[Rfam]
Nucleotides: 129
Stems, first nucleotide, its partner, number of pairs: 010053001012051004017046002058128001060104006066093002069090003073086004109125006
Number, partner (000 for none) and nucleotide at each position: 001000g002000a003000g004000u005000c006000u007000c008000u009000a010053g011000u012051g013050a014049c015048c016000g017046c018045u019000a020000a021000u022000u023000a024000c025000g026000c027000g028000g029000a030000a031000c032000u033000c034000g035000g036000g037000a038000c039000g040000c041000a042000g043000g044000g045018g046017g047000a048015g049014g050013u051012c052000c053010c054000a055000a056000a057000c058128c059000a060104c061103c062102g063101c064100g065099a066093g067092u068000u069090g070089c071088u072000g073086c074085g075084g076083c077000u078000c079000a080000a081000u082000g083076g084075c085074c086073g087000u088071g089070g090069u091000g092067g093066u094000g095000a096000g097000c098000g099065u100064c101063g102062c103061g104060g105000a106000a107000a108000a109125g110124g111123c112122g113121c114120a115000c116000g117000a118000g119000a120114u121113g122112c123111g124110u125109c126000a127000g128058g129000u

Group II catalytic intron D1-D4-2: a 129-nucleotide sequence from Streptosporangium album. Group II introns are found in rRNA, tRNA and mRNA of organelles in fungi, plants and protists, and also in mRNA in bacteria. Rfam links the family to the GO term Group II intron splicing. Taxonomically the source falls in Streptosporangium (Bacteria, Bacillati, Actinomycetota, Streptosporangiales). On this family, see Bonen and Vogel, Trends Genet 2001: "The ins and outs of group II introns".